The family of this 339-nucleotide RNA sequence from Sphaerochaeta pleomorpha is "Bacterial RNase P class A".
The source organism's lineage runs through Bacteria, Pseudomonadati, Spirochaetia, Sphaerochaeta and Sphaerochaeta pleomorpha.

RNA sequence: AAGGCAAGCUAGAUGAUCGCGGGCGGCCGAAAGGCCGCUUGAGGAAAGUCCGGGCUCCAUAGGACAUGACGCCGGGUAACGCCCGGGAGCGGUAACGCUAUAGAAAGCACCACAGAAAAUAUACCGCCGGUUUUCCGGUAAGGGUGAAAUGGUGGGGUAAAAGCCCACCGCGUAGCUGGCAACAGCUAUGGCAGGGUAAGCCUCGUCAGGAGCAAAACCAAGCAGCAGGUUGGGUAGUCCGUCUUUAGCCUGCGGGUCGGUUGCUACAGGGUAUUGGUAACAAUGCAUGUGGAUAGAUGAUCAUCAUAAACAGAACCCGGCUUAUUGCUUGCCUUUUUU
Numbered sequence: 001a002a003g004g005c006a007a008g009c010u011a012g013a014u015g016a017u018c019g020c021g022g023g024c025g026g027c028c029g030a031a032a033g034g035c036c037g038c039u040u041g042a043g044g045a046a047a048g049u050c051c052g053g054g055c056u057c058c059a060u061a062g063g064a065c066a067u068g069a070c071g072c073c074g075g076g077u078a079a080c081g082c083c084c085g086g087g088a089g090c091g092g093u094a095a096c097g098c099u100a101u102a103g104a105a106a107g108c109a110c111c112a113c114a115g116a117a118a119a120u121a122u123a124c125c126g127c128c129g130g131u132u133u134u135c136c137g138g139u140a141a142g143g144g145u146g147a148a149a150u151g152g153u154g155g156g157g158u159a160a161a162a163g164c165c166c167a168c169c170g171c172g173u174a175g176c177u178g179g180c181a182a183c184a185g186c187u188a189u190g191g192c193a194g195g196g197u198a199a200g201c202c203u204c205g206u207c208a209g210g211a212g213c214a215a216a217a218c219c220a221a222g223c224a225g226c227a228g229g230u231u232g233g234g235u236a237g238u239c240c241g242u243c244u245u246u247a248g249c250c251u252g253c254g255g256g257u258c259g260g261u262u263g264c265u266a267c268a269g270g271g272u273a274u275u276g277g278u279a280a281c282a283a284u285g286c287a288u289g290u291g292g293a294u295a296g297a298u299g300a301u302c303a304u305c306a307u308a309a310a311c312a313g314a315a316c317c318c319g320g321c322u323u324a325u326u327g328c329u330u331g332c333c334u335u336u337u338u339u
Stems, first nucleotide, its partner, number of pairs: 001335009011325001012305007020041009046323003050320005055212004062240004067208005072086005087101001088099004102203002107201002109197003124143002126139005151169006170192001171190008216262004225253006234242002269288001271286006
Description: About the family: Ribonuclease P (RNase P) is a ubiquitous endoribonuclease, found in archaea, bacteria and eukarya as well as chloroplasts and mitochondria. It scores 298 bits against the family's covariance model. The base pairs follow the family's consensus structure, which is taken from published work.